[Rfam]
RNA sequence: AUGUCUCAGAUGAUGGCCCUGCCGGAAAGUGUCGCAGACACUGGGCAGAGCCGGAUGGAUGGAGAU
Numbered sequence: 001a002u003g004u005c006u007c008a009g010a011u012g013a014u015g016g017c018c019c020u021g022c023c024g025g026a027a028a029g030u031g032u033c034g035c036a037g038a039c040a041c042u043g044g045g046c047a048g049a050g051c052c053g054g055a056u057g058g059a060u061g062g063a064g065a066u
Base pairs, nucleotide, nucleotide: 001066002065004063005062015052016051017050019048020047021046022045023044030040031039032038
This 66-nucleotide RNA from Branchiostoma floridae belongs to the Rfam family "Selenocysteine insertion sequence 1". Its family is annotated with selenocysteine incorporation in the Gene Ontology. A reference for the family is Walczak et al. (1996), "A novel RNA structural motif in the selenocysteine insertion element of eukaryotic selenoprotein mRNAs", RNA. The family's RNA type in Rfam is cis-regulatory element. Pairs were carried over by alignment from the consensus structure, which is taken from published work. The source organism's lineage runs through Eukaryota, Metazoa, Bilateria, Cephalochordata and Branchiostoma.